[Rfam]
RNA sequence: AAGGUCUCCUAUGCCACAGCUAUGGACUGGUUCAUUGCAGUCUGUUUUGCAUUU
Numbered sequence: 001a002a003g004g005u006c007u008c009c010u011a012u013g014c015c016a017c018a019g020c021u022a023u024g025g026a027c028u029g030g031u032u033c034a035u036u037g038c039a040g041u042c043u044g045u046u047u048u049g050c051a052u053u054u
Stems, first nucleotide, its partner, number of pairs: 001054003008049001011046001013045002016041002019038002022035005
Shown here is a 54-nucleotide sequence from Scyliorhinus torazame, a member of the family "Editing element of GABA-3 exon 9". The family's RNA type in Rfam is cis-regulatory element. A search with the family's covariance model found it, with a score of 62 bits. Rfam 15.1 lists 4,208 matches to the family in 654 species.